tRNA: a 91-nucleotide RNA sequence from Apiosordaria backusii. Rfam's curators write: Transfer RNA (tRNA) molecules are approximately 80 nucleotides in length. Their secondary structure includes four short double-helical elements and three loops (D, anti-codon, and T loops). Further hydrogen bonds mediate the characteristic L-shaped molecular structure. tRNAs have two regions of fundamental functional importance: the anti-codon, which is responsible for specific mRNA codon recognition, and the 3' end, to which the tRNAs corresponding amino acid is attached (by aminoacyl-tRNA synthetases). tRNAs cope with the degeneracy of the genetic code in two manners: having more than one tRNA (with a specific anti-codon) for a particular amino acid; and 'wobble' base-pairing, i.e. permitting non-standard base-pairing at the 3rd anti-codon position. Gene Ontology term of the family: triplet codon-amino acid adaptor activity. Pairs were carried over by alignment from the consensus structure, which is taken from published work.
[Rfam]
RNA sequence: GGCCGUGUGGUGUAGUGGUAGCAUACUUGCUUUGGGAAUUGACUCUCACAGCUGUUGCAAGUGGUCCCAGGUUCGAGCCCUGGCUCGGCCC
Numbered sequence: 001g002g003c004c005g006u007g008u009g010g011u012g013u014a015g016u017g018g019u020a021g022c023a024u025a026c027u028u029g030c031u032u033u034g035g036g037a038a039u040u041g042a043c044u045c046u047c048a049c050a051g052c053u054g055u056u057g058c059a060a061g062u063g064g065u066c067c068c069a070g071g072u073u074c075g076a077g078c079c080c081u082g083g084c085u086c087g088g089c090c091c
Stems, first nucleotide, its partner, number of pairs: 001090005007084001010024004026061005067083005